RNA sequence: GGAAUAGAGCGCUAGGGUUCCGACCUGUUGCCAAUGGCACAGGUGACUGGUCCGAGAGCACUCGACCUCUCAGGGAUCUGCUGCCCGGCAGAUCACCAGGUUACACGGCGGGAUAAAAGCCCGGGAGAC
Numbered sequence: 001g002g003a004a005u006a007g008a009g010c011g012c013u014a015g016g017g018u019u020c021c022g023a024c025c026u027g028u029u030g031c032c033a034a035u036g037g038c039a040c041a042g043g044u045g046a047c048u049g050g051u052c053c054g055a056g057a058g059c060a061c062u063c064g065a066c067c068u069c070u071c072a073g074g075g076a077u078c079u080g081c082u083g084c085c086c087g088g089c090a091g092a093u094c095a096c097c098a099g100g101u102u103a104c105a106c107g108g109c110g111g112g113a114u115a116a117a118a119g120c121c122c123g124g125g126a127g128a129c
Stems, first nucleotide, its partner, number of pairs: 007063003011059002015053002020050002022047001023044006064102005104124001106127001110122003

This 129-nucleotide sequence from Parathalassolituus penaei belongs to the Rfam family "Guanidine-I riboswitch aptamer".
Its family is annotated with regulation of gene expression in the Gene Ontology.
A search with the family's covariance model found it, with a score of 81 bits.